This 66-nucleotide sequence from Drosophila rhopaloa belongs to the Rfam family "Drosophila rox2 ncRNA".

RNA sequence: AAAAGGCAUGUAAAAUGUUGCAAAUGAAGCAAAAUAUAUAUAUGGGUAACGUUUUACGCGCCUUAA
Numbered sequence: 001a002a003a004a005g006g007c008a009u010g011u012a013a014a015a016u017g018u019u020g021c022a023a024a025u026g027a028a029g030c031a032a033a034a035u036a037u038a039u040a041u042a043u044g045g046g047u048a049a050c051g052u053u054u055u056a057c058g059c060g061c062c063u064u065a066a
Stems, first nucleotide, its partner, number of pairs: 003064003007060001009058013
The match comes from Rfam's covariance-model search (80 bits). The base pairs follow the family's consensus structure, which is taken from published work. Rfam links the family to the GO term dosage compensation complex.